Rfam assigns this 132-nucleotide sequence from Paraburkholderia lacunae to the family "Group II catalytic intron D1-D4-7". From the family's description: Group II introns are found in rRNA, tRNA and mRNA of organelles in fungi, plants and protists, and also in mRNA in bacteria. NCBI's taxonomy places the organism under Bacteria, Pseudomonadati, Betaproteobacteria, Burkholderiaceae, Paraburkholderia. Gene Ontology term of the family: Group II intron splicing.

RNA sequence: CCACCGGUGUCACCCGGUGAAUCCAGGAGCCUGAAUCAAGAGCGGCUCUGACAACGUAACGAAGCGCCGCAAGGCGCGGGGUAUCAAUCGCGAGAGGCGUACCCUUCUGGCAGCCAUACGCCGGAUGAGUGC
Numbered sequence: 001c002c003a004c005c006g007g008u009g010u011c012a013c014c015c016g017g018u019g020a021a022u023c024c025a026g027g028a029g030c031c032u033g034a035a036u037c038a039a040g041a042g043c044g045g046c047u048c049u050g051a052c053a054a055c056g057u058a059a060c061g062a063a064g065c066g067c068c069g070c071a072a073g074g075c076g077c078g079g080g081g082u083a084u085c086a087a088u089c090g091c092g093a094g095a096g097g098c099g100u101a102c103c104c105u106u107c108u109g110g111c112a113g114c115c116a117u118a119c120g121c122c123g124g125a126u127g128a129g130u131g132c
Stems, first nucleotide, its partner, number of pairs: 002019006027048005032039001064077005079104004088095002106125006